This 90-nucleotide sequence from Actinocrispum wychmicini belongs to the Rfam family "SAM riboswitch aptamer (S box leader)". The literature on the family includes a 1998 paper in Mol Microbiol by Grundy and Henkin, "The S box regulon: a new global transcription termination control system for methionine and cysteine biosynthesis genes in gram-positive bacteria". A search with the family's covariance model found it, with a score of 60 bits. The source organism's lineage runs through Bacteria, Actinomycetota, Pseudonocardiales, Pseudonocardiaceae and Actinocrispum.
RNA sequence: CAUCCAUCCCGAGCGGCUGAGAGACCUGGCUCCCUGACGCCGCAGCAACCACCUCGCCGAGGCAGGUGCUACCGCCAGGAGCGAUGGAGG
Numbered sequence: 001c002a003u004c005c006a007u008c009c010c011g012a013g014c015g016g017c018u019g020a021g022a023g024a025c026c027u028g029g030c031u032c033c034c035u036g037a038c039g040c041c042g043c044a045g046c047a048a049c050c051a052c053c054u055c056g057c058c059g060a061g062g063c064a065g066g067u068g069c070u071a072c073c074g075c076c077a078g079g080a081g082c083g084a085u086g087g088a089g090g
Stems, first nucleotide, its partner, number of pairs: 001090001003088006013043005021032003026078004044070004049066002052061001054059001074082001